This 105-nucleotide sequence from Canis lupus belongs to the Rfam family "mir-8834 microRNA precursor family".
Its family is annotated with miRNA-mediated post-transcriptional gene silencing and RISC complex in the Gene Ontology.
The source organism's lineage runs through Eukaryota, Bilateria, Tetrapoda, Eutheria and Canis lupus.
[Rfam]
RNA sequence: AGGAGGAACAACCACGGUGGCGGGGGCAGCUCUGGAGCCCUGGAUUCAGCCCCUGCAGGAAUUCCGGAGCUCUCAGUCCGCAGGGCCUGGAUGCUCCGGGCGGGG
Numbered sequence: 001a002g003g004a005g006g007a008a009c010a011a012c013c014a015c016g017g018u019g020g021c022g023g024g025g026g027c028a029g030c031u032c033u034g035g036a037g038c039c040c041u042g043g044a045u046u047c048a049g050c051c052c053c054u055g056c057a058g059g060a061a062u063u064c065c066g067g068a069g070c071u072c073u074c075a076g077u078c079c080g081c082a083g084g085g086c087c088u089g090g091a092u093g094c095u096c097c098g099g100g101c102g103g104g105g
Base pairs, nucleotide, nucleotide: 002097003096004095005094007092009089010088012085013084019078020077021076023074024073025072028071029070030069031068032067033066034065035064036063039059040058041057042056